[Rfam]
RNA sequence: UGCUGACCUGCCUUCACCUCCCUCUGCUCAGGGAUCCCAGGACCCAGGGGAGACGCUGCCCCGGAAGCUGAAGCA
Numbered sequence: 001u002g003c004u005g006a007c008c009u010g011c012c013u014u015c016a017c018c019u020c021c022c023u024c025u026g027c028u029c030a031g032g033g034a035u036c037c038c039a040g041g042a043c044c045c046a047g048g049g050g051a052g053a054c055g056c057u058g059c060c061c062c063g064g065a066a067g068c069u070g071a072a073g074c075a
Stems, first nucleotide, its partner, number of pairs: 001075004
Z6 small nucleolar RNA: a 75-nucleotide sequence from Otolemur garnettii. Gene Ontology terms of the family: nucleolus and RNA processing. It is annotated as a C/D-box small nucleolar RNA. For this family Rfam cites "Purified box C/D snoRNPs are able to reproduce site-specific 2'-O-methylation of target RNA in vitro" (Galardi et al., Mol Cell Biol, 2002).